[Rfam]
RNA sequence: GUCCUAAUCAGGCGUAAAGGGUUUGUAGGCUGCUUUGAAAAUUUUAACAUUAUAAUAGCUAUUUAAUUAUAAAAUGAAUUGAAGCUAGAAUCUAAUAGAGGGUAAAACAAAUAAUAUUUAAAGUAAGGAUUAAAUCUCAAGAGUUUAGAUGGAAUACUAACGGUUAAAGCUUUUAUCUAACUAAAGAUUGACGCUGAGAAACGAAAGGGAGGUAAGGAAACAGGAUUAGAUACCCAACUACUGCUCCCUGUCAACGAUGAAUGGUGGUUGCUAGUUUUUUUUCUUAAUAAACUACUAUAAUUUAAUUAUAAAAUUAGUAGAUAAGAUAAUGAUUUGUAACGAUGCUAACGCGUUAACCAUUCCGCCUUGUGAGUACGACUGCAAAGUUGAAAACAAAAAAAUU
Numbered sequence: 001g002u003c004c005u006a007a008u009c010a011g012g013c014g015u016a017a018a019g020g021g022u023u024u025g026u027a028g029g030c031u032g033c034u035u036u037g038a039a040a041a042u043u044u045u046a047a048c049a050u051u052a053u054a055a056u057a058g059c060u061a062u063u064u065a066a067u068u069a070u071a072a073a074a075u076g077a078a079u080u081g082a083a084g085c086u087a088g089a090a091u092c093u094a095a096u097a098g099a100g101g102g103u104a105a106a107a108c109a110a111a112u113a114a115u116a117u118u119u120a121a122a123g124u125a126a127g128g129a130u131u132a133a134a135u136c137u138c139a140a141g142a143g144u145u146u147a148g149a150u151g152g153a154a155u156a157c158u159a160a161c162g163g164u165u166a167a168a169g170c171u172u173u174u175a176u177c178u179a180a181c182u183a184a185a186g187a188u189u190g191a192c193g194c195u196g197a198g199a200a201a202c203g204a205a206a207g208g209g210a211g212g213u214a215a216g217g218a219a220a221c222a223g224g225a226u227u228a229g230a231u232a233c234c235c236a237a238c239u240a241c242u243g244c245u246c247c248c249u250g251u252c253a254a255c256g257a258u259g260a261a262u263g264g265u266g267g268u269u270g271c272u273a274g275u276u277u278u279u280u281u282u283c284u285u286a287a288u289a290a291a292c293u294a295c296u297a298u299a300a301u302u303u304a305a306u307u308a309u310a311a312a313a314u315u316a317g318u319a320g321a322u323a324a325g326a327u328a329a330u331g332a333u334u335u336g337u338a339a340c341g342a343u344g345c346u347a348a349c350g351c352g353u354u355a356a357c358c359a360u361u362c363c364g365c366c367u368u369g370u371g372a373g374u375a376c377g378a379c380u381g382c383a384a385a386g387u388u389g390a391a392a393a394c395a396a397a398a399a400a401a402u403u
Base pairs, nucleotide, nucleotide: 011366012365013364019363021202022201023200024199026196028195029194030193032085033084034083035082036081037080038079042076044072045071046070047068054063055062056061089189090188091187093184095182100178101177102176103175104174105173106172111155112154115151116150117149118148119147120146121145122144126137127136128135160171163170164169207248208247209246210245211244216242217241223235224234259362260361261360262359263358264357267340268339269338270337271336273334274333275332276331278329344351345350368395369394370393377388378387379386380385
Overview: Shown here is a 403-nucleotide part of an RNA, a member of the family "Bacterial small subunit ribosomal RNA". Pairs were carried over by alignment from the consensus structure, which is taken from published work. It scores 430 bits against the family's covariance model. Rfam links the family to the GO terms structural constituent of ribosome and ribosome.